Notes:
Rfam assigns this 69-nucleotide RNA to the family "int-alpA RNA". The family's RNA type in Rfam is small RNA. Acidobacteria (1 example), Planctomycetes (1 example), Proteobacteria.

RNA sequence: GCCACGCCUAGACCGGCCAGUCGAACGCGGGAACACCCUGAACCGCUGGCGUGGCGCACCUCAUCGGGG
Numbered sequence: 001g002c003c004a005c006g007c008c009u010a011g012a013c014c015g016g017c018c019a020g021u022c023g024a025a026c027g028c029g030g031g032a033a034c035a036c037c038c039u040g041a042a043c044c045g046c047u048g049g050c051g052u053g054g055c056g057c058a059c060c061u062c063a064u065c066g067g068g069g
Base pairs, nucleotide, nucleotide: 001055002054003053004052005051006050007049008048011022012021013020027046028045029044030043036069037068038067039066040065041064